[Rfam]
Shown here is a 118-nucleotide sequence from Plantimonas leprariae, a member of the family "Alphaproteobacterial ar14". Taxonomically the source falls in Plantimonas (Bacteria, Pseudomonadati, Pseudomonadota, Alphaproteobacteria). The family's RNA type in Rfam is small RNA. Rfam describes the family as follows. Smr14C2 was renamed NfeR1 (Nodule Formation Efficiency RNA) highly expressed in salt stress and during the symbiotic interaction on legume roots. The base pairs follow the family's consensus structure. The literature on the family includes a 2017 paper in Environ Microbiol by Robledo et al., "A conserved alpha-proteobacterial small RNA contributes to osmoadaptation and symbiotic efficiency of rhizobia on legume roots".
RNA sequence: CAGCUUCGCCUCGGUCCAUCAUCCUCCCAGGACCGACGCGGACAGGCCGGCGGCAUCCUCCUCCCAGCCGCUAGGCCACAUGCAGCGCCCGCCGGUCCUCCCCCGGCGGGCGUUUUGC
Numbered sequence: 001c002a003g004c005u006u007c008g009c010c011u012c013g014g015u016c017c018a019u020c021a022u023c024c025u026c027c028c029a030g031g032a033c034c035g036a037c038g039c040g041g042a043c044a045g046g047c048c049g050g051c052g053g054c055a056u057c058c059u060c061c062u063c064c065c066a067g068c069c070g071c072u073a074g075g076c077c078a079c080a081u082g083c084a085g086c087g088c089c090c091g092c093c094g095g096u097c098c099u100c101c102c103c104c105g106g107c108g109g110g111c112g113u114u115u116u117g118c
Stems, first nucleotide, its partner, number of pairs: 007040003011036007045076001047074001049072006085113011